Rfam assigns this 80-nucleotide sequence from Trifolium medium to the family "MIR5269 microRNA precursor family".
The base pairs follow the family's consensus structure, which was predicted with RNAalifold.
Taxonomically the source falls in Trifolium (Eukaryota, Streptophytina, Mesangiospermae, Pentapetalae).
RNA sequence: UUGGUUGAAAUCAAUGUGGAUCUUUCGCUUUGAAAAUAAAUCUCACAUAAAGUGAUGAAACUCACAUGAAUUUCAUCCAA
Numbered sequence: 001u002u003g004g005u006u007g008a009a010a011u012c013a014a015u016g017u018g019g020a021u022c023u024u025u026c027g028c029u030u031u032g033a034a035a036a037u038a039a040a041u042c043u044c045a046c047a048u049a050a051a052g053u054g055a056u057g058a059a060a061c062u063c064a065c066a067u068g069a070a071u072u073u074c075a076u077c078c079a080a
Base pairs, nucleotide, nucleotide: 001080002079003078004077006075007074008073009072010071011070014067015066016065017064018063023058024057026054027053028052029051030050031049032048
Dot-bracket structure: ((((.((((((..(((((....((.(((((((...............)))))))..))....)))))..)))))).))))